[Rfam]
RNA sequence: GCUGUAAAUGAUGAAAAUAUGGCUCCCUCUACUGAACACUGUGAGGAGAAAAGCCUUGCUGUUACCCAAAAUUUUCUGACUUUUGCAGC
Numbered sequence: 001g002c003u004g005u006a007a008a009u010g011a012u013g014a015a016a017a018u019a020u021g022g023c024u025c026c027c028u029c030u031a032c033u034g035a036a037c038a039c040u041g042u043g044a045g046g047a048g049a050a051a052a053g054c055c056u057u058g059c060u061g062u063u064a065c066c067c068a069a070a071a072u073u074u075u076c077u078g079a080c081u082u083u084u085g086c087a088g089c
Stems, first nucleotide, its partner, number of pairs: 001089008

Small nucleolar RNA SNORD100: an 89-nucleotide RNA sequence from Leptobrachium leishanense. NCBI's taxonomy places the organism under Eukaryota, Metazoa, Craniata, Batrachia, Leptobrachium. Clan: SNORD100 clan. The literature on the family includes a 2001 paper in EMBO J by Huttenhofer et al., "RNomics: an experimental approach that identifies 201 candidates for novel, small, non-messenger RNAs in mouse".